[Rfam]
RNA sequence: CUCUUAUCUAGAGAGGCGGAGGGACUGGCCCGAUGAAGCCCGGCAACCUACCGCGCCCUUAUGGUGCGGUGUGGUGCCAAUUCCUGCAGAGGUGAUCUCUGAAAGAUGAGAG
Number, nucleotide and partner (000 for none) at each position: 001c112002u111003c110004u109005u108006a107007u106008c105009u000010a000011g000012a000013g041014a000015g040016g039017c038018g000019g000020a000021g031022g030023g029024a000025c086026u000027g084028g083029c023030c022031c021032g000033a000034u000035g000036a000037a000038g017039c016040c015041c013042g078043g077044c076045a075046a000047c074048c073049u000050a070051c069052c068053g067054c066055g065056c064057c000058c000059u000060u000061a000062u000063g000064g056065u055066g054067c053068g052069g051070u050071g000072u000073g048074g047075u045076g044077c043078c042079a000080a000081u000082u104083c028084c027085u000086g025087c101088a100089g099090a098091g097092g096093u000094g000095a000096u092097c091098u090099c089100u088101g087102a000103a000104a082105g008106a007107u006108g005109a004110g003111a002112g001
Rfam assigns this 112-nucleotide RNA from Paludifilum halophilum to the family "SAM riboswitch aptamer (S box leader)". Gene Ontology term of the family: regulation of gene expression. Taxonomically the source falls in Paludifilum (Bacteria, Bacilli, Caryophanales, Thermoactinomycetaceae).